[Rfam]
RNA sequence: CCUACCUUUUCUUGGUAGGGACCAGGCAUGUAGUCCCAUUCCUCAUUGUUGUACAGAGGCAGAGGGAAAGGGUUUCGACUCCCUUUGGCAUCAUGUCUUUGGUGCUGCAGCUUCUUAUCUGCCAGAUCUAUCCUCAAGCACCAGGGACACUG
Numbered sequence: 001c002c003u004a005c006c007u008u009u010u011c012u013u014g015g016u017a018g019g020g021a022c023c024a025g026g027c028a029u030g031u032a033g034u035c036c037c038a039u040u041c042c043u044c045a046u047u048g049u050u051g052u053a054c055a056g057a058g059g060c061a062g063a064g065g066g067a068a069a070g071g072g073u074u075u076c077g078a079c080u081c082c083c084u085u086u087g088g089c090a091u092c093a094u095g096u097c098u099u100u101g102g103u104g105c106u107g108c109a110g111c112u113u114c115u116u117a118u119c120u121g122c123c124a125g126a127u128c129u130a131u132c133c134u135c136a137a138g139c140a141c142c143a144g145g146g147a148c149a150c151u152g
Base pairs, nucleotide, nucleotide: 001059002058003057005056016045018043019042020041021040025036026035085144087142088141091138105125106124107122108121109120110119
Small nucleolar RNA SNORA57: a 152-nucleotide RNA sequence from Prolemur simus. About the family: U99 belongs to the H/ACA class of snoRNAs which are thought to guide the sites of modification of uridines to pseudouridines, the target for this family is unknown. A search with the family's covariance model found it, with a score of 90 bits. Pairs were carried over by alignment from the consensus structure, which was predicted with PFOLD. Gene Ontology terms of the family: RNA processing and nucleolus. Rfam classes the family as an H/ACA-box small nucleolar RNA. On this family, see Vitali et al., Nucleic Acids Res 2003: "Identification of 13 novel human modification guide RNAs". The family has 26 seed sequences and 1,736 matches in Rfam 15.1.